[Rfam]
RNA sequence: GGCCCCUUAGCUCAGUGGUUAGAGCAGGCGACUCAUAAUCGCUUGGUCGCUGGUUCAAGUCCAGCAGGGGCCA
Numbered sequence: 001g002g003c004c005c006c007u008u009a010g011c012u013c014a015g016u017g018g019u020u021a022g023a024g025c026a027g028g029c030g031a032c033u034c035a036u037a038a039u040c041g042c043u044u045g046g047u048c049g050c051u052g053g054u055u056c057a058a059g060u061c062c063a064g065c066a067g068g069g070g071c072c073a
Base pairs, nucleotide, nucleotide: 001072002071003070004069005068006067007066010025011024012023013022027043028042029041030040031039049065050064051063052062053061
The family of this 73-nucleotide RNA sequence from Escherichia coli is "tRNA". From the family's description: Transfer RNA (tRNA) molecules are approximately 80 nucleotides in length. The family's consensus secondary structure is taken from published work.